[Rfam]
RNA sequence: GCUCCUGCAAGAGUGAAAUGCACGUGCUUUGGGACAGUGAAGACAAUAAUGUACACAAAGUCCAUACACUUUUACCCAUUAGAAGAG
Numbered sequence: 001g002c003u004c005c006u007g008c009a010a011g012a013g014u015g016a017a018a019u020g021c022a023c024g025u026g027c028u029u030u031g032g033g034a035c036a037g038u039g040a041a042g043a044c045a046a047u048a049a050u051g052u053a054c055a056c057a058a059a060g061u062c063c064a065u066a067c068a069c070u071u072u073u074a075c076c077c078a079u080u081a082g083a084a085g086a087g
Stems, first nucleotide, its partner, number of pairs: 002085002005082003009079001011077001013075002015072003019068002026061006032054001034052003
RNA: mir-350 microRNA precursor family